[Rfam]
RNA sequence: CGUGCGGUAUUCGGCAAUGACGCCGGGUGGCGGCACGGCACGAACUCGAGGA
Numbered sequence: 001c002g003u004g005c006g007g008u009a010u011u012c013g014g015c016a017a018u019g020a021c022g023c024c025g026g027g028u029g030g031c032g033g034c035a036c037g038g039c040a041c042g043a044a045c046u047c048g049a050g051g052a
Base pairs, nucleotide, nucleotide: 001037002036003035004034005033007031008030011026012025013024014023015022
RNA: L31-Gammaproteobacteria ribosomal protein leader